[Rfam]
RNA sequence: UUGUUUGCGGGUGCAGCAUCAUCAAGAUUCACAAGUGAGUAGUGUGACAUGAUUUAAUCGAUUUAGUCAUGUCGAUUGAACUCGCGGAGUUGAGAAUCUUGAUGAUGCUGCAUCAGCAAUAGA
Numbered sequence: 001u002u003g004u005u006u007g008c009g010g011g012u013g014c015a016g017c018a019u020c021a022u023c024a025a026g027a028u029u030c031a032c033a034a035g036u037g038a039g040u041a042g043u044g045u046g047a048c049a050u051g052a053u054u055u056a057a058u059c060g061a062u063u064u065a066g067u068c069a070u071g072u073c074g075a076u077u078g079a080a081c082u083c084g085c086g087g088a089g090u091u092g093a094g095a096a097u098c099u100u101g102a103u104g105a106u107g108c109u110g111c112a113u114c115a116g117c118a119a120u121a122g123a
Stems, first nucleotide, its partner, number of pairs: 010114021032092002

The record is a 123-nucleotide RNA from Pyrus ussuriensis x Pyrus communis, which matches "mir-172 microRNA precursor family" in Rfam. The family's consensus secondary structure was predicted with PFOLD. Rfam 15.1 lists 2,076 matches to the family in 219 species. Its family is annotated with RISC complex and miRNA-mediated post-transcriptional gene silencing in the Gene Ontology.